This 84-nucleotide RNA sequence from Thalassomonas actiniarum belongs to the Rfam family "c-di-GMP-I-GGC riboswitch aptamer".

RNA sequence: CGAGAUAAUGGCAAACAGAUCGCGAGGUCUGGACGCAAAGUCACCAGUCUGCUGAAAUACGGGCAGAUAGUGGGACUACCUAGG
Number, nucleotide and partner (000 for none) at each position: 001c084002g000003a081004g080005a000006u000007a000008a000009u000010g000011g036012c035013a000014a000015a000016c031017a030018g029019a028020u027021c026022g000023c000024g000025a000026g021027g020028u019029c018030u017031g016032g000033a000034c070035g012036c011037a000038a000039a077040g076041u075042c074043a000044c073045c072046a071047g068048u067049c066050u065051g064052c063053u000054g000055a000056a000057a000058u000059a000060c000061g000062g000063g052064c051065a050066g049067a048068u047069a000070g034071u046072g045073g044074g042075a041076c040077u039078a000079c000080c004081u003082a000083g000084g001